Shown here is a 135-nucleotide RNA from Echinops telfairi, a member of the family "Small nucleolar RNA SNORA13". Clan: SNORA13 clan. The family has 50 seed sequences and 1,034 matches in Rfam 15.1. Its family is annotated with RNA processing and nucleolus in the Gene Ontology. Taxonomically the source falls in Echinops (Eukaryota, Gnathostomata, Mammalia, Afrosoricida). By type it is an H/ACA-box small nucleolar RNA. The base pairs follow the family's consensus structure, which was predicted with CMfinder. Rfam describes the family as follows. ACA13 is a member of the H/ACA class of snoRNA that guide the sites of modification of uridines to pseudouridines.
[Rfam]
RNA sequence: GGCCUUUGUGUUGCCCGUUCGCUUUCGGAAACUAGUGAACGUGGUGUCAAAAAAGGCGCAAAUGAAACACCCUGGCAGCCACGUCCUGCCUUUGAAUUCGGUUUCUUUGGCGUCGGAGCUGCGUAAGGAACAGUU
Numbered sequence: 001g002g003c004c005u006u007u008g009u010g011u012u013g014c015c016c017g018u019u020c021g022c023u024u025u026c027g028g029a030a031a032c033u034a035g036u037g038a039a040c041g042u043g044g045u046g047u048c049a050a051a052a053a054a055g056g057c058g059c060a061a062a063u064g065a066a067a068c069a070c071c072c073u074g075g076c077a078g079c080c081a082c083g084u085c086c087u088g089c090c091u092u093u094g095a096a097u098u099c100g101g102u103u104u105c106u107u108u109g110g111c112g113u114c115g116g117a118g119c120u121g122c123g124u125a126a127g128g129a130a131c132a133g134u135u
Stems, first nucleotide, its partner, number of pairs: 002057006009049002012046004016041008070128002073125001075122005084117003088113002090110002094105002